[Rfam]
RNA: Small nucleolar RNA SNORA47
Organism: Dicentrarchus labrax
RNA sequence: UGGAGGACUGAGAAGGUUGAGCAGCUUGUGUUGUGCUGUUAUAACUGGUUAUAACCUCCAAGAGUAACAAACAAAUCACACAAAUUAACAGGCUCUGUCUCGAGCAGAGCUGACGUGUGUUUGUGAACAAAAU
Number, nucleotide and partner (000 for none) at each position: 001u000002g059003g058004a057005g056006g055007a000008c000009u000010g000011a000012g000013a000014a000015g046016g045017u044018u043019g000020a040021g039022c038023a037024g036025c035026u000027u000028g000029u000030g000031u000032u000033g000034u000035g025036c024037u023038g022039u021040u020041a000042u000043a018044a017045c016046u015047g000048g000049u000050u000051a000052u000053a000054a000055c006056c005057u004058c003059c002060a000061a000062g000063a000064g000065u000066a000067a000068c000069a000070a000071a000072c000073a000074a000075a000076u000077c000078a000079c125080a124081c123082a000083a000084a121085u000086u000087a118088a116089c115090a000091g111092g110093c109094u108095c107096u106097g105098u000099c000100u000101c000102g000103a000104g000105c097106a096107g095108a094109g093110c092111u091112g000113a000114c000115g089116u088117g000118u087119g000120u000121u084122u000123g081124u080125g079126a000127a000128c000129a000130a000131a000132a000133u000